[Rfam]
RNA: Potassium channel RNA editing signal
RNA sequence: GUGGGUUACGGAGACAUGAGGCCUGUCACCGUAGGGGGCAAGAUUGUGGGCUCCUUAUGUGCCAUUGCCGGCGUGCUCACCAUCGCGCUUCCCGUCCCAGUCAUUGUGUCCAAC
Numbered sequence: 001g002u003g004g005g006u007u008a009c010g011g012a013g014a015c016a017u018g019a020g021g022c023c024u025g026u027c028a029c030c031g032u033a034g035g036g037g038g039c040a041a042g043a044u045u046g047u048g049g050g051c052u053c054c055u056u057a058u059g060u061g062c063c064a065u066u067g068c069c070g071g072c073g074u075g076c077u078c079a080c081c082a083u084c085g086c087g088c089u090u091c092c093c094g095u096c097c098c099a100g101u102c103a104u105u106g107u108g109u110c111c112a113a114c
Base pairs, nucleotide, nucleotide: 001114002113004111005110007108008107009106010105011104013102014101015100018097021095022094037077038076039075040074049063050062051061